[Rfam]
RNA sequence: GAGAGUAGGCCUCUCGCAAUCAAGAGAUAGGUCGGAUUGCAAACUACCAUAAGCGGCUGCAAUUAAGAGUUGUGGUCGUGAGCGUUAUGGAAAAGGCAUGACAUGAUCAUGUUAUGU
Numbered sequence: 001g002a003g004a005g006u007a008g009g010c011c012u013c014u015c016g017c018a019a020u021c022a023a024g025a026g027a028u029a030g031g032u033c034g035g036a037u038u039g040c041a042a043a044c045u046a047c048c049a050u051a052a053g054c055g056g057c058u059g060c061a062a063u064u065a066a067g068a069g070u071u072g073u074g075g076u077c078g079u080g081a082g083c084g085u086u087a088u089g090g091a092a093a094a095g096g097c098a099u100g101a102c103a104u105g106a107u108c109a110u111g112u113u114a115u116g117u
Stems, first nucleotide, its partner, number of pairs: 001015005016040006024033002045116001047090006053079002056076003060072004095113006